Annotation: ES056 sRNA: an 86-nucleotide RNA from Citrobacter rodentium. Gene Ontology term of the family: fermentation. The base pairs follow the family's consensus structure, which was predicted with RNAfold. NCBI's taxonomy places the organism under Bacteria, Pseudomonadota, Enterobacterales, Enterobacteriaceae, Citrobacter rodentium.
RNA sequence: GUUUGUAUUAAUAUUUUCACCCAUCCGGGUGAGAAUUAUUUAUUCUACACACAGCAGUGCAACACCUGUCAGUACUUCUGGUGCCU
Numbered sequence: 001g002u003u004u005g006u007a008u009u010a011a012u013a014u015u016u017u018c019a020c021c022c023a024u025c026c027g028g029g030u031g032a033g034a035a036u037u038a039u040u041u042a043u044u045c046u047a048c049a050c051a052c053a054g055c056a057g058u059g060c061a062a063c064a065c066c067u068g069u070c071a072g073u074a075c076u077u078c079u080g081g082u083g084c085c086u
Stems, first nucleotide, its partner, number of pairs: 002035003006031004048083003052080003056076005062069002
Rfam describes the family as follows. Differentially expressed under several chemical stress and fermentation conditions.